[Rfam]
RNA: mir-2110 microRNA precursor family
RNA sequence: CAGGGGUUUGGGGAAGCGGCCGCUGAGUGAGGCGUCGGCUGUGUUUCUCACCGCGGUCUUUUCCUCCCACUCUUG
Numbered sequence: 001c002a003g004g005g006g007u008u009u010g011g012g013g014a015a016g017c018g019g020c021c022g023c024u025g026a027g028u029g030a031g032g033c034g035u036c037g038g039c040u041g042u043g044u045u046u047c048u049c050a051c052c053g054c055g056g057u058c059u060u061u062u063c064c065u066c067c068c069a070c071u072c073u074u075g
Stems, first nucleotide, its partner, number of pairs: 001075007010066007018058006024050004029045002032042003